This 67-nucleotide RNA from Psychrobacillus psychrotolerans belongs to the Rfam family "Bacillaceae-1 RNA".
RNA sequence: UUGAGAGGUAUACAGUCUAAGUACUCGACAUCCUGUCGCAACGACUGCAUGACCCGCUUCCUGUGGG
Numbered sequence: 001u002u003g004a005g006a007g008g009u010a011u012a013c014a015g016u017c018u019a020a021g022u023a024c025u026c027g028a029c030a031u032c033c034u035g036u037c038g039c040a041a042c043g044a045c046u047g048c049a050u051g052a053c054c055c056g057c058u059u060c061c062u063g064u065g066g067g
Base pairs, nucleotide, nucleotide: 011049013047014046015045016044017043026038027037028036029035053067054066055065056064057063
Dot-bracket structure: ..........(.(((((........((((.....))))....))))).)...(((((.....)))))

Annotation
The base pairs follow the family's consensus structure, which is taken from published work. Rfam classes the family as a small RNA. A search with the family's covariance model found it, with a score of 63 bits.